Background:
Shown here is a 533-nucleotide part of an RNA from Plasmodium vivax, a member of the family "Eukaryotic large subunit ribosomal RNA". A search with the family's covariance model found it, with a score of 2672 bits.
RNA sequence: UAGAAAUAAGUAGGUAAGGGAAGUCGGCAAAAUAGAUCCGUAACUUCGGGAAAAGGAUUGGCUCUGAGGACAUUAGAAUAGAGAAGAAAAGAAAAUGGUUGAAAAUAAAGGUAUCGAUGUAUCCUUAGAUUUCUAUCUCUGGGUAUUUCUUUACUUUCUUUUUCUUCAAUUAUCUUUUCUCCCCCUCUAUUCGCCUUCAUUUGGGUACACGUUUCGGCGUCGUCCCUCUUGAUACUAAUAAUGUUAACUCAGAACUGAAACGGACAAGGGGAAUCCGACUGUUUAAUUAAAACAUAGCAUUGUGACAAGCCAUAACUGGUAUUAACACAAUGUGAUUUCUGCCCAGUGCUUUGAAUGUCAACUUGAUGAAAUUCAAUCAAGCGCAGGUAAACGGCGGGAGUAACUAUGACUCUCUUAAGGUAGCCAAAUGCCUCGUCAUCUAAUUAGUGACGCGCAUGAAUGGAUUAACGAGAUUCCCACUGUCCCUACUUGCUAUCUAGCGAAACCACAGCCAAGGGAACGGGCUUGGCCAA
Numbered sequence: 001u002a003g004a005a006a007u008a009a010g011u012a013g014g015u016a017a018g019g020g021a022a023g024u025c026g027g028c029a030a031a032a033u034a035g036a037u038c039c040g041u042a043a044c045u046u047c048g049g050g051a052a053a054a055g056g057a058u059u060g061g062c063u064c065u066g067a068g069g070a071c072a073u074u075a076g077a078a079u080a081g082a083g084a085a086g087a088a089a090a091g092a093a094a095a096u097g098g099u100u101g102a103a104a105a106u107a108a109a110g111g112u113a114u115c116g117a118u119g120u121a122u123c124c125u126u127a128g129a130u131u132u133c134u135a136u137c138u139c140u141g142g143g144u145a146u147u148u149c150u151u152u153a154c155u156u157u158c159u160u161u162u163u164c165u166u167c168a169a170u171u172a173u174c175u176u177u178u179c180u181c182c183c184c185c186u187c188u189a190u191u192c193g194c195c196u197u198c199a200u201u202u203g204g205g206u207a208c209a210c211g212u213u214u215c216g217g218c219g220u221c222g223u224c225c226c227u228c229u230u231g232a233u234a235c236u237a238a239u240a241a242u243g244u245u246a247a248c249u250c251a252g253a254a255c256u257g258a259a260a261c262g263g264a265c266a267a268g269g270g271g272a273a274u275c276c277g278a279c280u281g282u283u284u285a286a287u288u289a290a291a292a293c294a295u296a297g298c299a300u301u302g303u304g305a306c307a308a309g310c311c312a313u314a315a316c317u318g319g320u321a322u323u324a325a326c327a328c329a330a331u332g333u334g335a336u337u338u339c340u341g342c343c344c345a346g347u348g349c350u351u352u353g354a355a356u357g358u359c360a361a362c363u364u365g366a367u368g369a370a371a372u373u374c375a376a377u378c379a380a381g382c383g384c385a386g387g388u389a390a391a392c393g394g395c396g397g398g399a400g401u402a403a404c405u406a407u408g409a410c411u412c413u414c415u416u417a418a419g420g421u422a423g424c425c426a427a428a429u430g431c432c433u434c435g436u437c438a439u440c441u442a443a444u445u446a447g448u449g450a451c452g453c454g455c456a457u458g459a460a461u462g463g464a465u466u467a468a469c470g471a472g473a474u475u476c477c478c479a480c481u482g483u484c485c486c487u488a489c490u491u492g493c494u495a496u497c498u499a500g501c502g503a504a505a506c507c508a509c510a511g512c513c514a515a516g517g518g519a520a521c522g523g524g525c526u527u528g529g530c531c532a533a
Stems, first nucleotide, its partner, number of pairs: 001499004009494008018485003035059005044049001060256002063253006069245005076235001078233002081230004085180003089176004098167001101164001103162003108157006116149002119146006127138004257261001269478007276470002280294003297333008307322001309320004337464003341395003346392002348388004353384001356383003363376004396414006415419001435451005512529005